[Rfam]
RNA sequence: GGAUGUGAGAGCAAUCUGGCUGCGACCUCUGUCACGCCAUUGCUGGCCAGGGUUGAUUGGGCUGAUCUGGCUGGCUAGGCAUGUGUCCCCUUCCUCCCUCCCUGCUCCAUGUGUGUCCUUCCCAAAGCUAGGCAGUCACUCAAAGAGGAUGAGCUUCCCUGUUGGAGGGGUACCAUUCAUGGGUCAAGAGUAUAGAGUAGCUGCAGUCCCCUUCUAGAAGCUCCAAACAAGCUCAAGGUGCAUUUGUAGGAGAAGCUGGCUGGGGUAGUCAAGCUUCUAAGACUGCAGACACAUCCAAGUGAGGCACUGCACGGGGUAGGGUGUUUGUUGGU
Numbered sequence: 001g002g003a004u005g006u007g008a009g010a011g012c013a014a015u016c017u018g019g020c021u022g023c024g025a026c027c028u029c030u031g032u033c034a035c036g037c038c039a040u041u042g043c044u045g046g047c048c049a050g051g052g053u054u055g056a057u058u059g060g061g062c063u064g065a066u067c068u069g070g071c072u073g074g075c076u077a078g079g080c081a082u083g084u085g086u087c088c089c090c091u092u093c094c095u096c097c098c099u100c101c102c103u104g105c106u107c108c109a110u111g112u113g114u115g116u117c118c119u120u121c122c123c124a125a126a127g128c129u130a131g132g133c134a135g136u137c138a139c140u141c142a143a144a145g146a147g148g149a150u151g152a153g154c155u156u157c158c159c160u161g162u163u164g165g166a167g168g169g170g171u172a173c174c175a176u177u178c179a180u181g182g183g184u185c186a187a188g189a190g191u192a193u194a195g196a197g198u199a200g201c202u203g204c205a206g207u208c209c210c211c212u213u214c215u216a217g218a219a220g221c222u223c224c225a226a227a228c229a230a231g232c233u234c235a236a237g238g239u240g241c242a243u244u245u246g247u248a249g250g251a252g253a254a255g256c257u258g259g260c261u262g263g264g265g266u267a268g269u270c271a272a273g274c275u276u277c278u279a280a281g282a283c284u285g286c287a288g289a290c291a292c293a294u295c296c297a298a299g300u301g302a303g304g305c306a307c308u309g310c311a312c313g314g315g316g317u318a319g320g321g322u323g324u325u326u327g328u329u330g331g332u
Stems, first nucleotide, its partner, number of pairs: 001108003005102001007100003011096001014092001018090002024087003028083001030081004035074001037070003042067001044065001046062003117170001118168004125136001141161002147158003200274003207267001209265004213259002221252004227247005297332001302326004307319004
RNA: 7SK RNA